The family of this 79-nucleotide sequence from Hermetia illucens is "drz-agam-1 ribozyme". The match comes from Rfam's covariance-model search (41 bits).

RNA sequence: UACUACCAAACCCUAUCUCCACCUCCACGUGGUAAUCGCUGGGAGUUCUUUUUCUAUAAAAAACUGCAGACGGAGAAGG
Numbered sequence: 001u002a003c004u005a006c007c008a009a010a011c012c013c014u015a016u017c018u019c020c021a022c023c024u025c026c027a028c029g030u031g032g033u034a035a036u037c038g039c040u041g042g043g044a045g046u047u048c049u050u051u052u053u054c055u056a057u058a059a060a061a062a063a064c065u066g067c068a069g070a071c072g073g074a075g076a077a078g079g
Base pairs, nucleotide, nucleotide: 012079013078014077016075018073019072021033022032023031044065045064046063047062049060050059052058